[Rfam]
RNA sequence: AGCAAAAUGAGGAAGACAGUUUAAAAUCUAAAUCUCCCGUGUGGGAAUCCCAAUCUGGGUCUUCAAAGUUCUCUGAUUGCU
Numbered sequence: 001a002g003c004a005a006a007a008u009g010a011g012g013a014a015g016a017c018a019g020u021u022u023a024a025a026a027u028c029u030a031a032a033u034c035u036c037c038c039g040u041g042u043g044g045g046a047a048u049c050c051c052a053a054u055c056u057g058g059g060u061c062u063u064c065a066a067a068g069u070u071c072u073c074u075g076a077u078u079g080c081u
Stems, first nucleotide, its partner, number of pairs: 001081005
The family of this 81-nucleotide RNA sequence from Hibiscus syriacus is "Small nucleolar RNA R160".
Its family is annotated with RNA processing and nucleolus in the Gene Ontology.
snoR160 is a C/D box small nucleolar RNA, which acts as a methylation guide for 25S ribosomal RNA in plants. snoR160 has been alternatively named snoZ270 in rice.
The base pairs follow the family's consensus structure.
The family's RNA type in Rfam is C/D-box small nucleolar RNA.